This 102-nucleotide sequence from Heyndrickxia oleronia belongs to the Rfam family "Purine riboswitch aptamer". NCBI's taxonomy places the organism under Bacteria, Bacillota, Caryophanales, Bacillaceae, Heyndrickxia. Riboswitches are metabolite binding domains within certain messenger RNAs that serve as precision sensors for their corresponding targets.

RNA sequence: AAAAAAUUAAAUAUCGUUUUUCAUAUAAUCGUAGGGAUAUGGCCUACAAGUUUCUACCAGUUUACCGUAAAUAAACCGACUAUGAAAAGCAGAGUGAAGAUA
Numbered sequence: 001a002a003a004a005a006a007u008u009a010a011a012u013a014u015c016g017u018u019u020u021u022c023a024u025a026u027a028a029u030c031g032u033a034g035g036g037a038u039a040u041g042g043c044c045u046a047c048a049a050g051u052u053u054c055u056a057c058c059a060g061u062u063u064a065c066c067g068u069a070a071a072u073a074a075a076c077c078g079a080c081u082a083u084g085a086a087a088a089g090c091a092g093a094g095u096g097a098a099g100a101u102a
Base pairs, nucleotide, nucleotide: 018088019087020086021085022084023083024082025081029049031047032046033045034044035043058078060076061075062074063073064072